This 97-nucleotide RNA from Micromonospora craniellae belongs to the Rfam family "Group II catalytic intron D1-D4-2".
RNA sequence: GGAGGUUGUUUGGCCCUCCGGAGCCGGCUUGCGGAAGCAGGCUUCAAACCACCACGAGGGGCGUUGGCUGAAGACCGUCGUCCUGAGCGUCGUUGGA
Numbered sequence: 001g002g003a004g005g006u007u008g009u010u011u012g013g014c015c016c017u018c019c020g021g022a023g024c025c026g027g028c029u030u031g032c033g034g035a036a037g038c039a040g041g042c043u044u045c046a047a048a049c050c051a052c053c054a055c056g057a058g059g060g061g062c063g064u065u066g067g068c069u070g071a072a073g074a075c076c077g078u079c080g081u082c083c084u085g086a087g088c089g090u091c092g093u094u095g096g097a
Stems, first nucleotide, its partner, number of pairs: 001019005020045006027038004052096002054093004058084002061081003065077003